[Rfam]
RNA sequence: CAGGUGGCCCCGUGGUGCUGUCAGCCCCCCGACCUGGCAGCACCCGGGGUUUUCCC
Numbered sequence: 001c002a003g004g005u006g007g008c009c010c011c012g013u014g015g016u017g018c019u020g021u022c023a024g025c026c027c028c029c030c031g032a033c034c035u036g037g038c039a040g041c042a043c044c045c046g047g048g049g050u051u052u053u054c055c056c
Stems, first nucleotide, its partner, number of pairs: 003054002007050006014044009